[Rfam]
RNA: ZMP/ZTP riboswitch aptamer (pfl RNA motif)
RNA sequence: UCGUCGUGUCGCGACUGGCGUUGAGGUGGACAUCCACCGGGGAGCGACGGACAACGGCAUUCGACCGUACGCCUGGGCCGAUGCG
Numbered sequence: 001u002c003g004u005c006g007u008g009u010c011g012c013g014a015c016u017g018g019c020g021u022u023g024a025g026g027u028g029g030a031c032a033u034c035c036a037c038c039g040g041g042g043a044g045c046g047a048c049g050g051a052c053a054a055c056g057g058c059a060u061u062c063g064a065c066c067g068u069a070c071g072c073c074u075g076g077g078c079c080g081a082u083g084c085g
Stems, first nucleotide, its partner, number of pairs: 003052003007049006015041002017073005026037004062080002065077002